[Rfam]
RNA sequence: ACUUACCGCUGUGCCUCCUCCCAUUGCGCGCGGUAAGUGUUCCCCUCUGGAGGUUUGCCCAAUGUGGCACCUUCAUAACUUAGCCGGACUUCCCAGUCCGGCUCUU
Dot-bracket structure: (((((.(((.((((...........))))))).))))).........(((((((..............)))))))........((((((......)))))).....